[Rfam]
RNA sequence: AAAGCAGGCUGCAAUUGCAGCGCUUCCUACUGUGGGAGUGCUGCCAUUUUCCUGCUGAGAGCAACUCCGCUAACACUGUCUGUGCUUUCACCCACACUGUGGUGAAAGCAUUUGUUUCUUAACGUGGACAAGU
Number, nucleotide and partner (000 for none) at each position: 001a000002a000003a056004g055005c054006a053007g052008g051009c000010u000011g000012c000013a000014a000015u000016u000017g000018c043019a042020g041021c040022g039023c038024u037025u036026c035027c000028u000029a000030c000031u000032g000033u000034g000035g026036g025037a024038g023039u022040g021041c020042u019043g018044c000045c000046a000047u000048u000049u000050u000051c008052c007053u006054g005055c004056u003057g000058a000059g000060a000061g000062c000063a000064a000065c000066u000067c127068c126069g125070c124071u121072a120073a119074c000075a117076c000077u000078g000079u000080c000081u000082g111083u110084g109085c108086u107087u106088u105089c104090a103091c102092c101093c000094a000095c000096a000097c000098u000099g000100u000101g092102g091103u090104g089105a088106a087107a086108g085109c084110a083111u082112u000113u000114g000115u000116u000117u075118c000119u073120u072121a071122a000123c000124g070125u069126g068127g067128a000129c000130a000131a000132g000133u000

The family of this 133-nucleotide sequence from Dicaeum eximium is "Small nucleolar RNA SNORA69". From the family's description: U69 is a member of the H/ACA class of small nucleolar RNAs (snoRNAs) which act as guides in the the modification of uridines to pseudouridines. Rfam classes the family as an H/ACA-box small nucleolar RNA. It scores 77 bits against the family's covariance model.